Shown here is a 70-nucleotide RNA from Oceanobacillus sp. J11TS1, a member of the family "Bacillus-plasmid RNA". The organism belongs to Oceanobacillus, within Bacteria.
[Rfam]
RNA sequence: UUUGUCAACGGUAAUCGCAGGGAGGAUGGUUUUCCCGACCGAGAAUUAAGGAGUUGACGAACUCGCUACA
Numbered sequence: 001u002u003u004g005u006c007a008a009c010g011g012u013a014a015u016c017g018c019a020g021g022g023a024g025g026a027u028g029g030u031u032u033u034c035c036c037g038a039c040c041g042a043g044a045a046u047u048a049a050g051g052a053g054u055u056g057a058c059g060a061a062c063u064c065g066c067u068a069c070a
Base pairs, nucleotide, nucleotide: 001061002060003059004058005057006056007055008054009053